[Rfam]
Notes:
This 94-nucleotide sequence from Ktedonobacter racemifer belongs to the Rfam family "ZMP/ZTP riboswitch aptamer (pfl RNA motif)". The base pairs follow the family's consensus structure, which is taken from published work.
RNA sequence: UGUUCUCUCGGUAACUGGCGCGUACGUGGAUUACCACGGGGAAGCCUGGAGAACAGUUUAAUUUAUGUAUCAGCCGCUCGCCUGGGCUGGGCAC
Numbered sequence: 001u002g003u004u005c006u007c008u009c010g011g012u013a014a015c016u017g018g019c020g021c022g023u024a025c026g027u028g029g030a031u032u033a034c035c036a037c038g039g040g041g042a043a044g045c046c047u048g049g050a051g052a053a054c055a056g057u058u059u060a061a062u063u064u065a066u067g068u069a070u071c072a073g074c075c076g077c078u079c080g081c082c083u084g085g086g087c088u089g090g091g092c093a094c
Base pairs, nucleotide, nucleotide: 003053004052005051006050007049008048010046011045012044015041016040017082018081019080020079026037027036028035029034071089072088073087074086075085